[Rfam]
RNA sequence: UGCGAUCGCUUCUAGGGUUCCGACUUAUUAACAGUGGUAAGAUUUACAGCAAGGUUAAAAAGUGCUGGUCCAAGAGAAGCAAGCCACCUAACAAGAAUUUAUUAUUAGGUAGCUCCACGGCGGGACAAAAGCCCGGGAGGA
Numbered sequence: 001u002g003c004g005a006u007c008g009c010u011u012c013u014a015g016g017g018u019u020c021c022g023a024c025u026u027a028u029u030a031a032c033a034g035u036g037g038u039a040a041g042a043u044u045u046a047c048a049g050c051a052a053g054g055u056u057a058a059a060a061a062g063u064g065c066u067g068g069u070c071c072a073a074g075a076g077a078a079g080c081a082a083g084c085c086a087c088c089u090a091a092c093a094a095g096a097a098u099u100u101a102u103u104a105u106u107a108g109g110u111a112g113c114u115c116c117a118c119g120g121c122g123g124g125a126c127a128a129a130a131g132c133c134c135g136g137g138a139g140g141a
Stems, first nucleotide, its partner, number of pairs: 008080005015071002020068002022065001023063004028058005082114003086110006116136001118139001122134003

Rfam assigns this 141-nucleotide sequence from Pleurocapsa sp. CCALA 161 to the family "Guanidine-I riboswitch aptamer". Its family is annotated with regulation of gene expression in the Gene Ontology. A reference for the family is Barrick et al. (2004), "New RNA motifs suggest an expanded scope for riboswitches in bacterial genetic control", Proc Natl Acad Sci U S A. The source organism's lineage runs through Bacteria, Cyanophyceae, Pleurocapsales, Pleurocapsaceae and Pleurocapsa.